[Rfam]
RNA: Potassium channel RNA editing signal
RNA sequence: GUGGGAUACGGCGAUAUGGUGCCCAAAACUUACCUUGGCAUGUUCGUUGGAGCCCUCUGUGCGCUGGCUGGUGUACUUACGAUUGCACUUCCGGUUCCGGUCAUCGUCUCAAAC
Numbered sequence: 001g002u003g004g005g006a007u008a009c010g011g012c013g014a015u016a017u018g019g020u021g022c023c024c025a026a027a028a029c030u031u032a033c034c035u036u037g038g039c040a041u042g043u044u045c046g047u048u049g050g051a052g053c054c055c056u057c058u059g060u061g062c063g064c065u066g067g068c069u070g071g072u073g074u075a076c077u078u079a080c081g082a083u084u085g086c087a088c089u090u091c092c093g094g095u096u097c098c099g100g101u102c103a104u105c106g107u108c109u110c111a112a113a114c
Base pairs, nucleotide, nucleotide: 001114002113005110008107009106010105011104013102014101015100018097019096021095022094037077038076040074050062